[Rfam]
RNA sequence: UGCUCAUCCAGAGGGGUGGAGGGACCGGCCCUACGAAGCCCCGGCAACCAUCUCGGUUUGCGCGACUCGCGAUCCUGCGAGGCGGCCGAGGCAGGUGCCAACUCCGGCCUGGAACCAGAUCGGUUCGCCAGGGAAGAUGAGGG
Numbered sequence: 001u002g003c004u005c006a007u008c009c010a011g012a013g014g015g016g017u018g019g020a021g022g023g024a025c026c027g028g029c030c031c032u033a034c035g036a037a038g039c040c041c042c043g044g045c046a047a048c049c050a051u052c053u054c055g056g057u058u059u060g061c062g063c064g065a066c067u068c069g070c071g072a073u074c075c076u077g078c079g080a081g082g083c084g085g086c087c088g089a090g091g092c093a094g095g096u097g098c099c100a101a102c103u104c105c106g107g108c109c110u111g112g113a114a115c116c117a118g119a120u121c122g123g124u125u126c127g128c129c130a131g132g133g134a135a136g137a138u139g140a141g142g143g
Stems, first nucleotide, its partner, number of pairs: 001143001003141006013042005021031003025107004043099004048095002051091008103135001108132005
SAM riboswitch aptamer (S box leader): a 143-nucleotide RNA from Streptomonospora alba. The match comes from Rfam's covariance-model search (76 bits). From the family's description: The SAM riboswitch is found upstream of a number of genes which code for proteins involved in methionine or cysteine biosynthesis in Gram-positive bacteria. On this family, see Huang et al., Nucleic Acids Res 2021: "Structure and folding of four putative kink turns identified in structured RNA species in a test of structural prediction rules".